[Rfam]
Shown here is a 74-nucleotide sequence from Mesembrinibis cayennensis, a member of the family "Small nucleolar RNA SNORD83". It scores 55 bits against the family's covariance model. The family's consensus secondary structure was predicted with PFOLD. The organism belongs to Mesembrinibis, within Eukaryota.

RNA sequence: GCCAAAUGAUGUGAAGUGGAUAGCAUUAGCGCUCUGCAAAGAUGACCUUCAUCUAUCACCCUAUACUGAUGGCU
Numbered sequence: 001g002c003c004a005a006a007u008g009a010u011g012u013g014a015a016g017u018g019g020a021u022a023g024c025a026u027u028a029g030c031g032c033u034c035u036g037c038a039a040a041g042a043u044g045a046c047c048u049u050c051a052u053c054u055a056u057c058a059c060c061c062u063a064u065a066c067u068g069a070u071g072g073c074u
Stems, first nucleotide, its partner, number of pairs: 001073004029037001032036001